c-di-GMP-I-GGC riboswitch aptamer: an 82-nucleotide sequence from Fusibacter sp. 3D3.
The base pairs follow the family's consensus structure, which is taken from published work.
Rfam 15.1 lists 1,298 matches to the family in 717 species.

[Rfam]
RNA sequence: ACCGAUAACGGCAAACUAUUGGAAACAAUAGGACGCAAAGCUAAUGGGCCUUAACACUAGAAUGGCAGCCAAGCUACCGAAG
Numbered sequence: 001a002c003c004g005a006u007a008a009c010g011g012c013a014a015a016c017u018a019u020u021g022g023a024a025a026c027a028a029u030a031g032g033a034c035g036c037a038a039a040g041c042u043a044a045u046g047g048g049c050c051u052u053a054a055c056a057c058u059a060g061a062a063u064g065g066c067a068g069c070c071a072a073g074c075u076a077c078c079g080a081a082g
Stems, first nucleotide, its partner, number of pairs: 003079002011036002016031006034068001039075004045071003048066003